[Rfam]
RNA: raiA RNA
Nucleotides: 203
Stems, first nucleotide, its partner, number of pairs: 002202008012194003015188005028174003031041001033091007050084002058076001060074001062072002082181001103167005108117003121160004130152002136145002
Number, partner (000 for none) and nucleotide at each position: 001000a002202u003201g004200u005199g006198c007197u008196a009195g010000g011000u012194c013193u014192g015188u016187g017186g018185u019184u020000g021000a022000a023000a024000g025000u026000c027000g028174a029173u030172g031041c032000c033091a034090g035089u036088c037087g038086c039085a040000g041031g042000c043000a044000a045000a046000a047000c048000g049000a050084u051083c052000c053000a054000c055000g056000u057000a058076a059000g060074u061000u062072a063071a064000a065000c066000a067000a068000a069000g070000u071063u072062u073000u074060a075000a076058u077000g078000a079000g080000c081000a082181u083051g084050g085039u086038g087037c088036g089035g090034c091033u092000u093000a094000g095000a096000a097000g098000u099000a100000a101000g102000u103167c104166c105165u106164g107163c108117c109116a110115g111000u112000a113000a114000a115110c116109u117108g118000a119000g120000a121160g122159g123158g124157u125000u126000a127000g128000u129000a130152g131151u132000g133000a134000g135000a136145g137144g138000a139000u140000a141000a142000u143000a144137c145136c146000g147000g148000g149000u150000a151131g152130c153000g154000a155000a156000a157124g158123c159122u160121c161000c162000a163107g164106c165105a166104g167103g168000c169000g170000a171000g172030u173029g174028u175000g176000g177000g178000g179000u180000c181082a182000a183000a184019g185018a186017c187016c188015a189000g190000g191000u192014c193013a194012g195009c196008u197007a198006g199005u200004a201003c202002a203000c